[Rfam]
RNA sequence: CACAGUAGCAGCGAGAGUCGGGUGAAAACCCCGACGGCCUAAUGAGCAAGGGUUCCUCGGCACUGCCAAUCAGCCGAGGGUUAGCCGAUCCUAAGUCCCACCGUAACUCGAAUGGGACAAAAGGGUAACUGGUUAAUAUUCCAGUGCUAUCACCACUCAAAGUCGACGCCUGGGGGUAGAUCGAGCCGGACAGUCGUCCGGUCGAAUCACUAAACUCCGUGGAAGCCGUCAUGGCACGAAGCGGACGAACAGUGAGACAGCGAAAGUCGAUCCAACCUCGGGCCCGUGAAAAGACGAGCGUGAUACUCGUACCGAGAUCCGACACAGGUGCUCAGGCGGAGAAAGCCAAGGCCUGU
Dot-bracket structure: ................((((((.......))))))((((....((((..((...((((((...((.....)).))))))......(((.((...((((((.((.....))..))))))....))...(((((........)))))..((((((........(((...((((((((...(((((.(((((........)))))....((((.....(((((....(((.....))).....)))))......)))).....(....).)))))...)))))))).........)))....)))))).)))..)).....((......)).)))).(((.......)))..))))...
This 356-nucleotide part of an RNA from Haloprofundus sp. MHR1 belongs to the Rfam family "Archaeal large subunit ribosomal RNA".
A search with the family's covariance model found it, with a score of 2798 bits.
The literature on the family includes a 2001 paper in Science by Yusupov et al., "Crystal structure of the ribosome at 5.5 A resolution".